A member of the RNA family "L31-Actinobacteria ribosomal protein leader", 48 nucleotides long. The base pairs follow the family's consensus structure, which is taken from published work. The sequence is in the family's curated seed alignment.
RNA sequence: GCGGUACCGGUUCACGCCCGGCGGCAUCGCCGCGGCGACCCGGCGACC
Numbered sequence: 001g002c003g004g005u006a007c008c009g010g011u012u013c014a015c016g017c018c019c020g021g022c023g024g025c026a027u028c029g030c031c032g033c034g035g036c037g038a039c040c041c042g043g044c045g046a047c048c
Stems, first nucleotide, its partner, number of pairs: 003048003007043004015037004019032004